[Rfam]
RNA sequence: GCGAAGUGAGAAGUAAGACUACCAUCCCGUGUGUGCUGUACCGGGGUGGGGUCUUGCUUCUUUCUUAGCG
Numbered sequence: 001g002c003g004a005a006g007u008g009a010g011a012a013g014u015a016a017g018a019c020u021a022c023c024a025u026c027c028c029g030u031g032u033g034u035g036c037u038g039u040a041c042c043g044g045g046g047u048g049g050g051g052u053c054u055u056g057c058u059u060c061u062u063u064c065u066u067a068g069c070g
Base pairs, nucleotide, nucleotide: 001069002068004066005065006064008062009061010060011059012058013057014056015055016054017053018052019051020050022049023048024047025046026045027044028043029042031041
A member of the RNA family "mir-2058 microRNA precursor family" from Branchiostoma floridae, 70 nucleotides long.
The family has 2 seed sequences and 3 matches in Rfam 15.1.